[Rfam]
RNA sequence: UAAAUACUGAUUCUCCGAGCUGAAGUACCUAAGGGAUCUUAAUCCUAUGGUGUUCAGCCGGUAGGAAUACGGGGAAACCCGUUUUCCUCCCGUGCUUGGAAAGGAGAAUAUAAACAUCAACU
Dot-bracket structure: ..........((((((..((((((..(((...((((......))))..))).))))))....(((((.(((((....))))).)))))((.......))...))))))..............